A member of the RNA family "Bacterial RNase P class A" from Candidatus Pelagibacter sp. IMCC9063, 359 nucleotides long. Taxonomically the source falls in Candidatus Pelagibacter (Bacteria, Pseudomonadati, Pseudomonadota, Alphaproteobacteria). By type it is a ribozyme. The family's consensus secondary structure is taken from published work.
[Rfam]
RNA sequence: CUAGUUGGUUGAAUGAUAGCUUUUAACUUAGGUUAAAAGAGGAAAGUCUGGGCUCCAUAGGAAAAAGUACCAGGUAAUUCCUGGCAAGAGUGAUCUUAGGGAUAGUGCCACAGAAAAUAAACCGCCUAAUCAAGGCAAGGGUGAAAAGGUGAGGUAAGAGCUUACCGGUUUUUUAGCAAUAAAAAACGCAUGGAAAACCCUACUUGGAGCAAGACCAAAUAGGAGUAGCGUAGUUAAUUUAUUAACUAAAUUUCCUAAAUUAGCUACUCGGGUUGGUUGCUUGAGCUACUUGGUGACAAGUAGCCUAGAGAAAUUAUCAUUUUAAAUGACAAAACCCAGCUUACAGGCCAACUAGCAAA
Numbered sequence: 001c002u003a004g005u006u007g008g009u010u011g012a013a014u015g016a017u018a019g020c021u022u023u024u025a026a027c028u029u030a031g032g033u034u035a036a037a038a039g040a041g042g043a044a045a046g047u048c049u050g051g052g053c054u055c056c057a058u059a060g061g062a063a064a065a066a067g068u069a070c071c072a073g074g075u076a077a078u079u080c081c082u083g084g085c086a087a088g089a090g091u092g093a094u095c096u097u098a099g100g101g102a103u104a105g106u107g108c109c110a111c112a113g114a115a116a117a118u119a120a121a122c123c124g125c126c127u128a129a130u131c132a133a134g135g136c137a138a139g140g141g142u143g144a145a146a147a148g149g150u151g152a153g154g155u156a157a158g159a160g161c162u163u164a165c166c167g168g169u170u171u172u173u174u175a176g177c178a179a180u181a182a183a184a185a186a187c188g189c190a191u192g193g194a195a196a197a198c199c200c201u202a203c204u205u206g207g208a209g210c211a212a213g214a215c216c217a218a219a220u221a222g223g224a225g226u227a228g229c230g231u232a233g234u235u236a237a238u239u240u241a242u243u244a245a246c247u248a249a250a251u252u253u254c255c256u257a258a259a260u261u262a263g264c265u266a267c268u269c270g271g272g273u274u275g276g277u278u279g280c281u282u283g284a285g286c287u288a289c290u291u292g293g294u295g296a297c298a299a300g301u302a303g304c305c306u307a308g309a310g311a312a313a314u315u316a317u318c319a320u321u322u323u324a325a326a327u328g329a330c331a332a333a334a335c336c337c338a339g340c341u342u343a344c345a346g347g348c349c350a351a352c353u354a355g356c357a358a359a
Stems, first nucleotide, its partner, number of pairs: 001355010011344001012321007020039008044342003048339005053209004061256001065205005070084005085099001086097004100200002105198002108193002122140002124136004148166006167189001168187008213278004223269006249261004285304008